[Rfam]
RNA sequence: UGAUUUGCUCAUAGAGCGUGAGCAACUAAAUAUAAAUAAAGCUCAAUUGACG
Numbered sequence: 001u002g003a004u005u006u007g008c009u010c011a012u013a014g015a016g017c018g019u020g021a022g023c024a025a026c027u028a029a030a031u032a033u034a035a036a037u038a039a040a041g042c043u044c045a046a047u048u049g050a051c052g
Base pairs, nucleotide, nucleotide: 006024007023008022009021010020011019014044015043016042017041